Overview
Rfam assigns this 54-nucleotide RNA from Labeo rohita to the family "Editing element of GABA-3 exon 9". The family has 52 seed sequences and 4,208 matches in Rfam 15.1. For this family Rfam cites "Editing modifies the GABA(A) receptor subunit alpha3" (Ohlson et al., RNA, 2007). The source organism's lineage runs through Eukaryota, Opisthokonta, Osteoglossocephalai, Ostariophysi and Labeo. The family's RNA type in Rfam is cis-regulatory element. Pairs were carried over by alignment from the consensus structure, which is taken from published work.
[Rfam]
RNA sequence: AAGGUGGCCUACGCGACAGCUAUGGACUGGUUUAUGGCAGUUUGCUAUGCGUUU
Numbered sequence: 001a002a003g004g005u006g007g008c009c010u011a012c013g014c015g016a017c018a019g020c021u022a023u024g025g026a027c028u029g030g031u032u033u034a035u036g037g038c039a040g041u042u043u044g045c046u047a048u049g050c051g052u053u054u
Stems, first nucleotide, its partner, number of pairs: 001054003007050002010047002013045002015042003019038002022035005